Shown here is a 74-nucleotide RNA from Labilithrix luteola, a member of the family "tRNA". It scores 67 bits against the family's covariance model. On this family, see Lowe and Eddy, Nucleic Acids Res 1997: "tRNAscan-SE: a program for improved detection of transfer RNA genes in genomic sequence". Pairs were carried over by alignment from the consensus structure, which is taken from published work.
[Rfam]
Nucleotides: 074
Stems, first nucleotide, its partner, number of pairs: 001073007010026004028044005050066005
Number, partner (000 for none) and nucleotide at each position: 001073g002072c003071c004070g005069g006068a007067g008000u009000a010026g011025c012024u013023c014000a015000g016000u017000u018000g019000g020000u021000u022000a023013g024012a025011g026010c027000g028044g029043g030042c031041g032040u033000u034000u035000c036000a037000u038000a039000c040032g041031c042030g043029c044028u045000a046000g047000g048000u049000c050066g051065g052064g053063g054062g055000u056000u057000c058000g059000a060000c061000u062054c063053c064052c065051u066050c067007c068006u069005c070004c071003g072002g073001c074000a